[Rfam]
RNA sequence: UGAUGACCUGAGGCUUCCUGGCUGUCACUCUGUCCCCAGCCCCUCCUGGCCCUGGCCCGGGGCACAGCCUGAGUCCCAGUAAAGUCUGUCAGGUCCUGAACC
Number, nucleotide and partner (000 for none) at each position: 001u000002g101003a000004u099005g095006a094007c093008c092009u091010g000011a087012g086013g085014c084015u083016u082017c000018c000019u000020g000021g080022c079023u078024g077025u000026c000027a074028c073029u072030c071031u000032g069033u000034c067035c000036c000037c000038a000039g063040c062041c061042c060043c059044u000045c000046c000047u000048g000049g000050c000051c000052c000053u000054g000055g000056c000057c000058c000059g043060g042061g041062g040063c039064a000065c000066a000067g034068c000069c032070u000071g030072a029073g028074u027075c000076c000077c024078a023079g022080u021081a000082a016083a015084g014085u013086c012087u011088g000089u000090c000091a009092g008093g007094u006095c005096c000097u000098g000099a004100a000101c002102c000

The family of this 102-nucleotide RNA from Canis lupus is "mir-8813 microRNA precursor family". It scores 79 bits against the family's covariance model. Rfam links the family to the GO terms miRNA-mediated post-transcriptional gene silencing and RISC complex.